A member of the RNA family "skipping-rope RNA" from Streptococcus satellite phage Javan321, 80 nucleotides long.
[Rfam]
RNA sequence: GAGAAGUGAGGUAGAAAUGAUAGUGUCGCUACGCAACUUCAUAGUAUGAGAUGACGGGACAGGCACACCGUCCACUACUC
Numbered sequence: 001g002a003g004a005a006g007u008g009a010g011g012u013a014g015a016a017a018u019g020a021u022a023g024u025g026u027c028g029c030u031a032c033g034c035a036a037c038u039u040c041a042u043a044g045u046a047u048g049a050g051a052u053g054a055c056g057g058g059a060c061a062g063g064c065a066c067a068c069c070g071u072c073c074a075c076u077a078c079u080c
Stems, first nucleotide, its partner, number of pairs: 001080003005076004011032004023066005034048001036045003053072005

Rfam classes the family as a small RNA. The family's consensus secondary structure is taken from published work.